[Rfam]
RNA: Bacterial RNase P class B
RNA sequence: AUGUUUUGGUAAUCGCUGCAUAUGAGUUUCCAUAUGUUGAGGAAAGUCCAUGCUCACAGGUGCUGAAAUGCACGUAGUGUUCGUGCUUGAUGAAAUCAUAAAUCAAGGGAGUUGUUAAUCAACUUACGGCAGGGAAAUGAGCUAAGUCGCAAGAUAGGCUCAAAAUACCUUGAAAGUGCCACAGUGACGAAGUCAAAUUGGAAACAAUUUGAGUGGAACGAGGUAAACCCCACGAGUGAGAAACCCAAAUUUUGGUAGGGGCAUCUUGGAUUAGGGAAUCAUAAACCGAAACAAGGACUGUUCGCAUAGAACGGUAGAUAGAUGAUUACCACUAAAGUACGAGGUUGACCACCGUAAUCAGUGCUUUAGAACAGAACAUGGCUUAUAAAA
Numbered sequence: 001a002u003g004u005u006u007u008g009g010u011a012a013u014c015g016c017u018g019c020a021u022a023u024g025a026g027u028u029u030c031c032a033u034a035u036g037u038u039g040a041g042g043a044a045a046g047u048c049c050a051u052g053c054u055c056a057c058a059g060g061u062g063c064u065g066a067a068a069u070g071c072a073c074g075u076a077g078u079g080u081u082c083g084u085g086c087u088u089g090a091u092g093a094a095a096u097c098a099u100a101a102a103u104c105a106a107g108g109g110a111g112u113u114g115u116u117a118a119u120c121a122a123c124u125u126a127c128g129g130c131a132g133g134g135a136a137a138u139g140a141g142c143u144a145a146g147u148c149g150c151a152a153g154a155u156a157g158g159c160u161c162a163a164a165a166u167a168c169c170u171u172g173a174a175a176g177u178g179c180c181a182c183a184g185u186g187a188c189g190a191a192g193u194c195a196a197a198u199u200g201g202a203a204a205c206a207a208u209u210u211g212a213g214u215g216g217a218a219c220g221a222g223g224u225a226a227a228c229c230c231c232a233c234g235a236g237u238g239a240g241a242a243a244c245c246c247a248a249a250u251u252u253u254g255g256u257a258g259g260g261g262c263a264u265c266u267u268g269g270a271u272u273a274g275g276g277a278a279u280c281a282u283a284a285a286c287c288g289a290a291a292c293a294a295g296g297a298c299u300g301u302u303c304g305c306a307u308a309g310a311a312c313g314g315u316a317g318a319u320a321g322a323u324g325a326u327u328a329c330c331a332c333u334a335a336a337g338u339a340c341g342a343g344g345u346u347g348a349c350c351a352c353c354g355u356a357a358u359c360a361g362u363g364c365u366u367u368a369g370a371a372c373a374g375a376a377c378a379u380g381g382c383u384u385a386u387a388a389a390a
Stems, first nucleotide, its partner, number of pairs: 004390003008330007016039001018037006044384003048381005053240005058075001060073004081235005086107006108127001109125006128230002131170003139161004146155003176228002178224003193212008244260003264296005297315006332369009
Dot-bracket structure: ...(((.(((((((.(.((((((........)))))).)....[[[.[[[[[((((((.((((......)))).).....(((((((((((..........))))))(((((((.....)))))).)((.(((.....((((...(((....)))..))))......))).....(((((............((((((((....)))))))).........)))..))))))))))))))...(((...........)))...(((((.......................)))))((((((.......))))))........))))))).(((((((((....................))))))))).......]]]]]]]]...)))